RNA sequence: UGAUGAUCGUUCCUCCUGCCGCUCAGAGAUCAUGCGGCUCAGGAUUUUAGAUCAUCAUAGAGAAAUCUGAGUCUGUUUCACCCGGUGUGUGCCGACCGACGGUCUCCUGUGGCCACGCUGGACUUUGCGGGACUCUACAGCU
Number, nucleotide and partner (000 for none) at each position: 001u057002g056003a055004u054005g053006a052007u051008c050009g000010u000011u000012c000013c000014u044015c043016c042017u041018g040019c000020c036021g035022c034023u000024c000025a000026g000027a000028g000029a000030u000031c000032a000033u000034g022035c021036g020037g000038c000039u000040c018041a017042g016043g015044a014045u000046u000047u000048u000049a000050g008051a007052u006053c005054a004055u003056c002057a001058u000059a000060g000061a000062g000063a000064a000065a000066u000067c000068u000069g000070a134071g133072u132073c131074u130075g000076u000077u000078u000079c000080a000081c000082c121083c120084g119085g118086u117087g116088u115089g114090u000091g000092c000093c000094g000095a000096c000097c000098g000099a000100c000101g000102g000103u000104c000105u000106c000107c000108u000109g000110u000111g000112g000113c000114c089115a088116c087117g086118c085119u084120g083121g082122a000123c000124u000125u000126u000127g000128c000129g000130g074131g073132a072133c071134u070135c000136u000137a000138c000139a000140g000141c000142u000
Source information
Small nucleolar RNA SNORA79: a 142-nucleotide sequence from Danio rerio. Rfam 15.1 lists 944 matches to the family in 375 species. The family's RNA type in Rfam is H/ACA-box small nucleolar RNA. The literature on the family includes a 2006 paper in RNA by Schattner et al., "A computational screen for mammalian pseudouridylation guide H/ACA RNAs". From the family's description: ACA65 (SNORA79) is a member of the H/ACA class of snoRNAs that guide the sites of modification of uridines to pseudouridines.